This 104-nucleotide RNA sequence from Triticum aestivum belongs to the Rfam family "Small nucleolar RNA snoR99".
Its family is annotated with nucleolus and RNA processing in the Gene Ontology.
Pairs were carried over by alignment from the consensus structure, which was predicted with WAR.
A search with the family's covariance model found it, with a score of 47 bits.
Taxonomically the source falls in Triticum (Eukaryota, Streptophytina, Magnoliopsida, commelinids).

RNA sequence: CUGCAUCUGGGGGAUAAGCAGUCCCUUACACCUGAUAACCAUCCUCUUCACUUUUUCUGAUGAAACCUUCUGUUUUUAGCUGAACAUCAAGGGAUGAGAUAUUU
Numbered sequence: 001c002u003g004c005a006u007c008u009g010g011g012g013g014a015u016a017a018g019c020a021g022u023c024c025c026u027u028a029c030a031c032c033u034g035a036u037a038a039c040c041a042u043c044c045u046c047u048u049c050a051c052u053u054u055u056u057c058u059g060a061u062g063a064a065a066c067c068u069u070c071u072g073u074u075u076u077u078a079g080c081u082g083a084a085c086a087u088c089a090a091g092g093g094a095u096g097a098g099a100u101a102u103u104u
Stems, first nucleotide, its partner, number of pairs: 040096004055084003059080001061078002